The family of this 103-nucleotide sequence is "L4-Archaeoglobi ribosomal protein leades". The family's RNA type in Rfam is cis-regulatory leader.
RNA sequence: CUGAAGGCCGCGUUCGGGUCACUUGCGGACUGCAACACCCGAUCUCCCUUGUGGUGCCGCCGAAUAUGGCGACACCCGCUGCGGGAGAGCGCGUCACCGUCAG
Numbered sequence: 001c002u003g004a005a006g007g008c009c010g011c012g013u014u015c016g017g018g019u020c021a022c023u024u025g026c027g028g029a030c031u032g033c034a035a036c037a038c039c040c041g042a043u044c045u046c047c048c049u050u051g052u053g054g055u056g057c058c059g060c061c062g063a064a065u066a067u068g069g070c071g072a073c074a075c076c077c078g079c080u081g082c083g084g085g086a087g088a089g090c091g092c093g094u095c096a097c098c099g100u101c102a103g
Stems, first nucleotide, its partner, number of pairs: 001103004009093005015041004023035005043088006050081002
The literature on the family includes a 2020 paper in BMC Microbiol by Eckert and Weinberg, "Discovery of 20 novel ribosomal leader candidates in bacteria and archaea".